[Rfam]
RNA: Potassium channel RNA editing signal
Organism: Panagrolaimus sp. JU765
RNA sequence: UUGGGUUAUGGUGACGUUGUCCCUGCAACCGUCAUGGGUAAAAUUGUUGGUGGUAUUUGUUCACUUAGCGGUGUUUUGGUCAUCGCCCUUCCUGUUCCCGUGAGUUUUUUGUUUUUAGA
Numbered sequence: 001u002u003g004g005g006u007u008a009u010g011g012u013g014a015c016g017u018u019g020u021c022c023c024u025g026c027a028a029c030c031g032u033c034a035u036g037g038g039u040a041a042a043a044u045u046g047u048u049g050g051u052g053g054u055a056u057u058u059g060u061u062c063a064c065u066u067a068g069c070g071g072u073g074u075u076u077u078g079g080u081c082a083u084c085g086c087c088c089u090u091c092c093u094g095u096u097c098c099c100g101u102g103a104g105u106u107u108u109u110u111g112u113u114u115u116u117a118g119a
Stems, first nucleotide, its partner, number of pairs: 001119002004116002008112004014101003019096001021094001037077002040074001050062001